This 65-nucleotide RNA sequence from Mesembrinibis cayennensis belongs to the Rfam family "Selenocysteine insertion sequence 1". The literature on the family includes a 1996 paper in RNA by Walczak et al., "A novel RNA structural motif in the selenocysteine insertion element of eukaryotic selenoprotein mRNAs". The organism belongs to Mesembrinibis, within Eukaryota. By type it is a cis-regulatory element. A search with the family's covariance model found it, with a score of 35 bits.
RNA sequence: CCAGCCCCAUGACGGUCUGCCUUCAAGCCAGCUUGCUGGUGAGGCAGACCUGAAGAUUCGGCGUG
Numbered sequence: 001c002c003a004g005c006c007c008c009a010u011g012a013c014g015g016u017c018u019g020c021c022u023u024c025a026a027g028c029c030a031g032c033u034u035g036c037u038g039g040u041g042a043g044g045c046a047g048a049c050c051u052g053a054a055g056a057u058u059c060g061g062c063g064u065g
Stems, first nucleotide, its partner, number of pairs: 002065002014050010029038003